RNA sequence: GUUCGUGCUGAAGGCCUGUUUCCUAGGCUACAAACGGAGGACUUGUUCCUUUACUUUCCGCCUAGGGGAAAGUCCCCGGACCUCCGGCAGAGAGUGCCGCGUGCGCGUGCACGUUAGACCUCCUCACGGUUCACUGUAAAGCCCGCUAAGAAGCGACCCCGCUCCCUGGGUGGGGGAGCUGAGCGGCGUGAGAGCGGGGACGUCAUCCGUCAGCAUUUCCUAGUUACGCAGGCAGCGCGUCGUGCUGCGCGCCAACCGCACGGGGCUCAUUCUCAGCGCGUU
Numbered sequence: 001g002u003u004c005g006u007g008c009u010g011a012a013g014g015c016c017u018g019u020u021u022c023c024u025a026g027g028c029u030a031c032a033a034a035c036g037g038a039g040g041a042c043u044u045g046u047u048c049c050u051u052u053a054c055u056u057u058c059c060g061c062c063u064a065g066g067g068g069a070a071a072g073u074c075c076c077c078g079g080a081c082c083u084c085c086g087g088c089a090g091a092g093a094g095u096g097c098c099g100c101g102u103g104c105g106c107g108u109g110c111a112c113g114u115u116a117g118a119c120c121u122c123c124u125c126a127c128g129g130u131u132c133a134c135u136g137u138a139a140a141g142c143c144c145g146c147u148a149a150g151a152a153g154c155g156a157c158c159c160c161g162c163u164c165c166c167u168g169g170g171u172g173g174g175g176g177a178g179c180u181g182a183g184c185g186g187c188g189u190g191a192g193a194g195c196g197g198g199g200a201c202g203u204c205a206u207c208c209g210u211c212a213g214c215a216u217u218u219c220c221u222a223g224u225u226a227c228g229c230a231g232g233c234a235g236c237g238c239g240u241c242g243u244g245c246u247g248c249g250c251g252c253c254a255a256c257c258g259c260a261c262g263g264g265g266c267u268c269a270u271u272c273u274c275a276g277c278g279c280g281u282u
Stems, first nucleotide, its partner, number of pairs: 004280008014233006022066007037051005071267002074265004086098004099114006117203001122199004127194001131191004143186004169179001171177001235252006
The record is a 282-nucleotide RNA from Dasypus novemcinctus, which matches "RNase MRP" in Rfam. On this family, see Walker and Avis, Biochem Biophys Res Commun 2005: "Secondary structure probing of the human RNase MRP RNA reveals the potential for MRP RNA subsets". Pairs were carried over by alignment from the consensus structure, which is taken from published work. RNase MRP is an enzymatically active ribonucleoprotein with two distinct roles in eukaryotes. In mitochondria it plays a direct role in the initiation of mitochondrial DNA replication. In the nucleus it is involved in precursor rRNA processing, where it cleaves the internal transcribed spacer 1 between 18S and 5.8S rRNAs. Despite distinct functions, RNase MRP has been shown to be evolutionarily related to RNase P. Like eukaryotic RNase P, RNase MRP is not catalytically active without associated protein subunits. By type it is a ribozyme.